Record summary:
The record is an 87-nucleotide sequence from Gossypium klotzschianum, which matches "MIR7486 microRNA precursor family" in Rfam.
RNA sequence: CACGGUAGCGCACUUUGCUUACAUGGAAACAAAUCGUGCCCUCUAGGAUGCGAUUUGUUGCCACGUCAGCAAAGCACGCUGACGUGG
Number, nucleotide and partner (000 for none) at each position: 001c086002a085003c084004g083005g000006u081007a080008g079009c078010g077011c000012a000013c074014u073015u072016u071017g070018c069019u068020u000021a066022c000023a000024u063025g062026g061027a000028a059029a058030c057031a056032a055033a054034u053035c052036g051037u050038g049039c000040c047041c046042u000043c000044u000045a000046g041047g040048a000049u038050g037051c036052g035053a034054u033055u032056u031057g030058u029059u028060g000061c026062c025063a024064c000065g000066u021067c000068a019069g018070c017071a016072a015073a014074g013075c000076a000077c010078g009079c008080u007081g006082a000083c004084g003085u002086g001087g000
The organism belongs to Gossypium, within Eukaryota. A search with the family's covariance model found it, with a score of 75 bits. Its family is annotated with RISC complex and miRNA-mediated post-transcriptional gene silencing in the Gene Ontology. The family's consensus secondary structure was predicted with RNAalifold.